[Rfam]
RNA: Glycine riboswitch aptamer
Organism: Azospirillum griseum
RNA sequence: UGAUCCCUCGCGGGAGAGAUCGCCGUUGCGGUGCCCGGGACCACGGGUGGCAAAACGGUGGCGCCGAAGGAGCAACCGCCCCCGGAAACUCUCAGGCAGCAAGGACCGCAAGGGGAUA
Numbered sequence: 001u002g003a004u005c006c007c008u009c010g011c012g013g014g015a016g017a018g019a020u021c022g023c024c025g026u027u028g029c030g031g032u033g034c035c036c037g038g039g040a041c042c043a044c045g046g047g048u049g050g051c052a053a054a055a056c057g058g059u060g061g062c063g064c065c066g067a068a069g070g071a072g073c074a075a076c077c078g079c080c081c082c083c084g085g086a087a088a089c090u091c092u093c094a095g096g097c098a099g100c101a102a103g104g105a106c107c108g109c110a111a112g113g114g115g116a117u118a
Stems, first nucleotide, its partner, number of pairs: 006113003010109004020061008063097003066093002070091003076084001